[Rfam]
RNA sequence: CCCAGGGCGAUGCCCCGGGCUACGAUAGGAUGCCCUUUCAGGGCU
Numbered sequence: 001c002c003c004a005g006g007g008c009g010a011u012g013c014c015c016c017g018g019g020c021u022a023c024g025a026u027a028g029g030a031u032g033c034c035c036u037u038u039c040a041g042g043g044c045u
Stems, first nucleotide, its partner, number of pairs: 001019003005015004032044005

Acido-Lenti-1 RNA: a 45-nucleotide RNA sequence from Oceaniferula marina.
The family's consensus secondary structure is taken from published work.
It is annotated as a small RNA.
A search with the family's covariance model found it, with a score of 39 bits.
Taxonomically the source falls in Oceaniferula (Bacteria, Pseudomonadati, Verrucomicrobiota, Verrucomicrobiaceae).